[Rfam]
RNA sequence: UACAGCGACUGACUUCUGUGGGCUAUGUCACUUCAAAGUCAGGCCAACUCUCAGUAUGAUGGGAAGAGCUAACCCUCACCUCUGACGGUGGGGGUUUUCUUUUGGA
Numbered sequence: 001u002a003c004a005g006c007g008a009c010u011g012a013c014u015u016c017u018g019u020g021g022g023c024u025a026u027g028u029c030a031c032u033u034c035a036a037a038g039u040c041a042g043g044c045c046a047a048c049u050c051u052c053a054g055u056a057u058g059a060u061g062g063g064a065a066g067a068g069c070u071a072a073c074c075c076u077c078a079c080c081u082c083u084g085a086c087g088g089u090g091g092g093g094g095u096u097u098u099c100u101u102u103u104g105g106a
Stems, first nucleotide, its partner, number of pairs: 018031004071096010

A member of the RNA family "Enterobacteria rnk leader" from Klebsiella sp. RIT-PI-d, 106 nucleotides long. NCBI's taxonomy places the organism under Bacteria, Pseudomonadati, Pseudomonadota, Enterobacteriaceae, Klebsiella. Pairs were carried over by alignment from the consensus structure, which is taken from published work.